[Rfam]
RNA: c-di-GMP-I riboswitch aptamer
RNA sequence: UCAGAAAAACGGCAUACCAAUGGAAACAUUGGGGCGCAAAGCUACGGGGCUAAGGGACUUUUGUACUAUGCCGGCCGAGUUGCCUGA
Numbered sequence: 001u002c003a004g005a006a007a008a009a010c011g012g013c014a015u016a017c018c019a020a021u022g023g024a025a026a027c028a029u030u031g032g033g034g035c036g037c038a039a040a041g042c043u044a045c046g047g048g049g050c051u052a053a054g055g056g057a058c059u060u061u062u063g064u065a066c067u068a069u070g071c072c073g074g075c076c077g078a079g080u081u082g083c084c085u086g087a
Stems, first nucleotide, its partner, number of pairs: 012037002017032006040081004045077003048072003055066001057064002